Shown here is a 170-nucleotide RNA sequence from Psychroflexus sediminis, a member of the family "Group II catalytic intron D1-D4-3". The base pairs follow the family's consensus structure. It scores 96 bits against the family's covariance model.
RNA sequence: UUUGCUGUGAGGCAUUCAGUGAAGUAAGCGAGACUACAAAAGCCGGUACUGAUGAACAAGAACUGUAUAUAGAGGCUAGUCGUAUUGGGGUAAGCAAGCACAUCUUUGUAACGCCCACAAGAAAAGGUACAAUUAGUAGAUACAGCAGGAAUUGGCGGGAAGCUAUUUAU
Numbered sequence: 001u002u003u004g005c006u007g008u009g010a011g012g013c014a015u016u017c018a019g020u021g022a023a024g025u026a027a028g029c030g031a032g033a034c035u036a037c038a039a040a041a042g043c044c045g046g047u048a049c050u051g052a053u054g055a056a057c058a059a060g061a062a063c064u065g066u067a068u069a070u071a072g073a074g075g076c077u078a079g080u081c082g083u084a085u086u087g088g089g090g091u092a093a094g095c096a097a098g099c100a101c102a103u104c105u106u107u108g109u110a111a112c113g114c115c116c117a118c119a120a121g122a123a124a125a126g127g128u129a130c131a132a133u134u135a136g137u138a139g140a141u142a143c144a145g146c147a148g149g150a151a152u153u154g155g156c157g158g159g160a161a162g163c164u165a166u167u168u169a170u
Base pairs, nucleotide, nucleotide: 003014004013005012006011028170030168031167032166037162042156043155044154045153046152047150049148050147051146063145064144065143066142067141068140075137076136077135079133080132082130083129084128085127088116089115090114091113094109095108096107097106